[Rfam]
This 57-nucleotide sequence from Chitinimonas taiwanensis belongs to the Rfam family "COG3860 RNA". NCBI's taxonomy places the organism under Bacteria, Pseudomonadati, Neisseriales, Chitinibacteraceae, Chitinimonas taiwanensis.

RNA sequence: CGGUCGGCAGUUCACCUAGGCGUCGCCGGUUCGUCUUGAACCACGCUAAACCUGCUU
Numbered sequence: 001c002g003g004u005c006g007g008c009a010g011u012u013c014a015c016c017u018a019g020g021c022g023u024c025g026c027c028g029g030u031u032c033g034u035c036u037u038g039a040a041c042c043a044c045g046c047u048a049a050a051c052c053u054g055c056u057u
Base pairs, nucleotide, nucleotide: 002016003015004014029041030040031039032038
The match comes from Rfam's covariance-model search (63 bits).